This 96-nucleotide RNA from Aegilops tauschii belongs to the Rfam family "Small nucleolar RNA Z159/U59". The organism belongs to Aegilops tauschii, within Eukaryota. On this family, see Chen et al., Nucleic Acids Res 2003: "The high diversity of snoRNAs in plants: identification and comparative study of 120 snoRNA genes from Oryza sativa". The base pairs follow the family's consensus structure, which was predicted with PFOLD.
[Rfam]
RNA sequence: CUUUCCAAUGACGGUCAAACUAAAUACUUUCGUUCUUUUGAUGCGCCAUCUCAAGGCGCGGUGCGGAAGCAAUUUGGAGACCUGAAUUGAGGAAAU
Numbered sequence: 001c002u003u004u005c006c007a008a009u010g011a012c013g014g015u016c017a018a019a020c021u022a023a024a025u026a027c028u029u030u031c032g033u034u035c036u037u038u039u040g041a042u043g044c045g046c047c048a049u050c051u052c053a054a055g056g057c058g059c060g061g062u063g064c065g066g067a068a069g070c071a072a073u074u075u076g077g078a079g080a081c082c083u084g085a086a087u088u089g090a091g092g093a094a095a096u
Stems, first nucleotide, its partner, number of pairs: 003094004